[Rfam]
Nucleotides: 101
Stems, first nucleotide, its partner, number of pairs: 020085006029048002033045003057077007
Number, partner (000 for none) and nucleotide at each position: 001000a002000a003000u004000a005000u006000g007000a008000a009000u010000u011000u012000a013000a014000u015000a016000g017000a018000a019000a020085u021084g022083c023082g024081u025080a026000u027000a028000a029048u030047c031000c032000c033045g034044g035043g036000g037000a038000u039000a040000u041000g042000g043035c044034c045033c046000a047030g048029a049000g050000u051000u052000u053000c054000u055000a056000c057077c058076a059075g060074a061073c062072u063071g064000c065000c066000g067000u068000a069000a070000a071063u072062a073061g074060u075059c076058u077057g078000a079000c080025u081024a082023c083022g084021c085020a086000g087000c088000g089000u090000a091000g092000a093000u094000a095000g096000c097000u098000u099000u100000g101000a